[Rfam]
Shown here is a 166-nucleotide sequence from Triticum turgidum, a member of the family "MIR2118 microRNA precursor family". The match comes from Rfam's covariance-model search (94 bits). The base pairs follow the family's consensus structure, which was predicted with RNAalifold. Lineage of the source: Eukaryota > Liliopsida > Triticodae > Triticeae > Triticum turgidum. A reference for the family is Xue et al. (2009), "Characterization and expression profiles of miRNAs in rice seeds", Nucleic Acids Res.
RNA sequence: GACGGGGAGAGUAAAAAAGAGGGCCGAAGAGUGAUGGGCAUGGGAACAUGAUGGAAGGCUGAAGAACUCAGUUUCUCGUCUAAGACUGAAAGAGGAUUUUUUCUGAGUUUUCAUGAUGCCUCAUAUCCCUAUUGUUCUUUGGUGUUCCUUCCUCUUCCUUCUGGAU
Numbered sequence: 001g002a003c004g005g006g007g008a009g010a011g012u013a014a015a016a017a018a019g020a021g022g023g024c025c026g027a028a029g030a031g032u033g034a035u036g037g038g039c040a041u042g043g044g045a046a047c048a049u050g051a052u053g054g055a056a057g058g059c060u061g062a063a064g065a066a067c068u069c070a071g072u073u074u075c076u077c078g079u080c081u082a083a084g085a086c087u088g089a090a091a092g093a094g095g096a097u098u099u100u101u102u103c104u105g106a107g108u109u110u111u112c113a114u115g116a117u118g119c120c121u122c123a124u125a126u127c128c129c130u131a132u133u134g135u136u137c138u139u140u141g142g143u144g145u146u147c148c149u150u151c152c153u154c155u156u157c158c159u160u161c162u163g164g165a166u
Stems, first nucleotide, its partner, number of pairs: 009157003013153001016150002019147003024142010035131004040126003044122002047118003051114001054112006